[Rfam]
RNA sequence: UAUGGGGUAUCCGAAAACCAUGAAUAGAGUAGGAG
Numbered sequence: 001u002a003u004g005g006g007g008u009a010u011c012c013g014a015a016a017a018c019c020a021u022g023a024a025u026a027g028a029g030u031a032g033g034a035g
Stems, first nucleotide, its partner, number of pairs: 002021004010034003
RNA: DUF805b RNA